[Rfam]
RNA sequence: ACACGGCGAAAGGAGGUGAUCCUAAGUUGGAUAGCAACGGGACUCAUGAGGUGGCUGUUCGUUAGCCGCUGUCCUUGACAGAAAGCCUGGUCGAGAACCGUGUGAAGCGGUUGGCGACUCAACAGCUACCAAGAACCCACGUGGCAGUUUCGGCCCUUGUCCAGCCGACCCGGGAAUCCGGAGCCGCGUGGGUUCUCUAU
Numbered sequence: 001a002c003a004c005g006g007c008g009a010a011a012g013g014a015g016g017u018g019a020u021c022c023u024a025a026g027u028u029g030g031a032u033a034g035c036a037a038c039g040g041g042a043c044u045c046a047u048g049a050g051g052u053g054g055c056u057g058u059u060c061g062u063u064a065g066c067c068g069c070u071g072u073c074c075u076u077g078a079c080a081g082a083a084a085g086c087c088u089g090g091u092c093g094a095g096a097a098c099c100g101u102g103u104g105a106a107g108c109g110g111u112u113g114g115c116g117a118c119u120c121a122a123c124a125g126c127u128a129c130c131a132a133g134a135a136c137c138c139a140c141g142u143g144g145c146a147g148u149u150u151c152g153g154c155c156c157u158u159g160u161c162c163a164g165c166c167g168a169c170c171c172g173g174g175a176a177u178c179c180g181g182a183g184c185c186g187c188g189u190g191g192g193u194u195c196u197c198u199a200u
Stems, first nucleotide, its partner, number of pairs: 015059004020054001060116007068108003073102001075100001134194012150168005

The record is a 200-nucleotide sequence from Rhizocola hellebori, which matches "Actinobacteria sRNA Ms_IGR-5" in Rfam. The source organism's lineage runs through Bacteria, Actinomycetota, Micromonosporales, Micromonosporaceae and Rhizocola. For this family Rfam cites "Identification of small RNAs in Mycobacterium smegmatis using heterologous Hfq" (Li et al., RNA, 2013).